[Rfam]
RNA sequence: UAAAGCUCGGAAAAUCGUACUCAUAUAAUCUUGGGAAUACGGCCCAAAAGUUUCUACCGGAUAACCAUUGCAAUUGUCCGACUAUGAGUGUGAGCGACGUACUG
Numbered sequence: 001u002a003a004a005g006c007u008c009g010g011a012a013a014a015u016c017g018u019a020c021u022c023a024u025a026u027a028a029u030c031u032u033g034g035g036a037a038u039a040c041g042g043c044c045c046a047a048a049a050g051u052u053u054c055u056a057c058c059g060g061a062u063a064a065c066c067a068u069u070g071c072a073a074u075u076g077u078c079c080g081a082c083u084a085u086g087a088g089u090g091u092g093a094g095c096g097a098c099g100u101a102c103u104g
Base pairs, nucleotide, nucleotide: 018090019089020088021087022086023085024084025083029049031047032046033045034044035043058080059079060078061077062076063075064074
The family of this 104-nucleotide RNA sequence from Cohnella terricola is "Purine riboswitch aptamer". About the family: Riboswitches are metabolite binding domains within certain messenger RNAs that serve as precision sensors for their corresponding targets. Lineage of the source: Bacteria > Bacilli > Caryophanales > Paenibacillaceae > Cohnella. Its family is annotated with purine nucleobase biosynthetic process in the Gene Ontology. For this family Rfam cites "Riboswitches Control Fundamental Biochemical Pathways in Bacillus subtilis and Other Bacteria" (Mandal et al., Cell, 2003).